[Rfam]
RNA: FMN riboswitch aptamer (RFN element)
RNA sequence: AGUUGUCUUCGGGGCGGGGUGUAAUUCCCCACCGGUGGUUAAAGUCCACGAGCGUAACGCUGAUUCGGUGAAAUUCCGAAACCGACGGUAUAGUCCGGAUGAAAGAAGAUAAAC
Number, nucleotide and partner (000 for none) at each position: 001a000002g000003u112004u111005g110006u109007c108008u107009u106010c105011g000012g000013g000014g000015c000016g000017g029018g028019g027020u000021g000022u000023a000024a000025u000026u000027c019028c018029c017030c000031a094032c093033c084034g083035g049036u048037g047038g046039u000040u000041a000042a000043a000044g082045u081046c038047c037048a036049c035050g000051a000052g060053c059054g058055u000056a000057a000058c054059g053060c052061u000062g000063a000064u080065u079066c078067g077068g076069u000070g000071a000072a000073a000074u000075u000076c068077c067078g066079a065080a064081a045082c044083c034084g033085a000086c097087g096088g095089u000090a000091u000092a000093g032094u031095c088096c087097g086098g000099a000100u000101g000102a000103a000104a000105g010106a009107a008108g007109a006110u005111a004112a003113a000114c000